Bacillaceae-1 RNA: a 66-nucleotide RNA from Terrihalobacillus insolitus. Taxonomically the source falls in Terrihalobacillus (Bacteria, Bacillati, Bacillota, Caryophanales). The family's RNA type in Rfam is small RNA. A search with the family's covariance model found it, with a score of 44 bits. The base pairs follow the family's consensus structure, which is taken from published work.
RNA sequence: CAUUUUAGAAGGCCGACUAAUAUCGGCACGUCCUGUGUCAAACGUCGGAUCAGCCCAUCGUGGACA
Numbered sequence: 001c002a003u004u005u006u007a008g009a010a011g012g013c014c015g016a017c018u019a020a021u022a023u024c025g026g027c028a029c030g031u032c033c034u035g036u037g038u039c040a041a042a043c044g045u046c047g048g049a050u051c052a053g054c055c056c057a058u059c060g061u062g063g064a065c066a
Stems, first nucleotide, its partner, number of pairs: 011050001013048005025039005053065001055063002